[Rfam]
RNA sequence: UAGCCGGCGGAUGUCCGGUCGAGGCAAGAGCCAAGUCUCCUCGUAGCUGACGGGCAACUGGGGGAGAGAUCCUAAGGUUGAAGCCACGUGACAAAGCAGUUCUCGCAAUGCGAGCAAUCGACAGGCCGUAACAUGA
Dot-bracket structure: ...................(((((..............)))))......(((.((((((....((....))....)))))....).)))......(((.(......).)))..((............)).......
Numbered sequence: 001u002a003g004c005c006g007g008c009g010g011a012u013g014u015c016c017g018g019u020c021g022a023g024g025c026a027a028g029a030g031c032c033a034a035g036u037c038u039c040c041u042c043g044u045a046g047c048u049g050a051c052g053g054g055c056a057a058c059u060g061g062g063g064g065a066g067a068g069a070u071c072c073u074a075a076g077g078u079u080g081a082a083g084c085c086a087c088g089u090g091a092c093a094a095a096g097c098a099g100u101u102c103u104c105g106c107a108a109u110g111c112g113a114g115c116a117a118u119c120g121a122c123a124g125g126c127c128g129u130a131a132c133a134u135g136a
Stems, first nucleotide, its partner, number of pairs: 020043005050089003054085001055080005064071002096111003100107001114129002
This 136-nucleotide RNA sequence from Cohnella rhizosphaerae belongs to the Rfam family "Group II catalytic intron D1-D4-4".
About the family: Group II introns are found in rRNA, tRNA and mRNA of organelles in fungi, plants and protists, and also in mRNA in bacteria.
Pairs were carried over by alignment from the consensus structure.
It scores 82 bits against the family's covariance model.